[Rfam]
RNA: Small Cajal body specific RNA 15
RNA sequence: CUGGAGGACUAAGAAAGUGGAGCCAAUGGCACUAUAUUGACUCCACUGAUACUAUCCUCCUACAUUAAAUGGUGGAAGAACAAGGCCUGCCUGUGAGAUAAAAGUCAGGACUUACUUGAUCUACCUACAAUG
Numbered sequence: 001c002u003g004g005a006g007g008a009c010u011a012a013g014a015a016a017g018u019g020g021a022g023c024c025a026a027u028g029g030c031a032c033u034a035u036a037u038u039g040a041c042u043c044c045a046c047u048g049a050u051a052c053u054a055u056c057c058u059c060c061u062a063c064a065u066u067a068a069a070u071g072g073u074g075g076a077a078g079a080a081c082a083a084g085g086c087c088u089g090c091c092u093g094u095g096a097g098a099u100a101a102a103a104g105u106c107a108g109g110a111c112u113u114a115c116u117u118g119a120u121c122u123a124c125c126u127a128c129a130a131u132g
Base pairs, nucleotide, nucleotide: 003060004059005058006057007056008055010051011050018045019044020043021042022041024039026035027034028033071125072124073123074122075121076120077117082113083112084111086109087108088107089106